RNA: U2 spliceosomal RNA
Organism: Chionoecetes opilio
RNA sequence: AUCGCUUCUCGGCCUUUUGGCUAAGAUCAAAGUGUAGUAUCUGUUCUUAUCAGCUUAAUAUCUGAUACGAUCCCCAUGUGGGAUCAACGAUAUUAAUCUGAUUUUUGGCCCCAUGGCGAAGUGCUGGGGGUUUUUGCUCCCCCCCUUUUUGCCGCGGUGGGCCCCCCGGUAUUGCAGUCCCUUCCGGGAUCGGUCCACCCCCC
Numbered sequence: 001a002u003c004g005c006u007u008c009u010c011g012g013c014c015u016u017u018u019g020g021c022u023a024a025g026a027u028c029a030a031a032g033u034g035u036a037g038u039a040u041c042u043g044u045u046c047u048u049a050u051c052a053g054c055u056u057a058a059u060a061u062c063u064g065a066u067a068c069g070a071u072c073c074c075c076a077u078g079u080g081g082g083a084u085c086a087a088c089g090a091u092a093u094u095a096a097u098c099u100g101a102u103u104u105u106u107g108g109c110c111c112c113a114u115g116g117c118g119a120a121g122u123g124c125u126g127g128g129g130g131u132u133u134u135u136g137c138u139c140c141c142c143c144c145c146u147u148u149u150u151g152c153c154g155c156g157g158u159g160g161g162c163c164c165c166c167c168g169g170u171a172u173u174g175c176a177g178u179c180c181c182u183u184c185c186g187g188g189a190u191c192g193g194u195c196c197a198c199c200c201c202c203c
Base pairs, nucleotide, nucleotide: 007026008025009024011022012021013020014019048067049066050065051064052063053062069085070084071083072082073081074080114154115153116152117151118150119149120148121147126145127144128143129142130141159196160195161194162193163192165188166187167186168185169184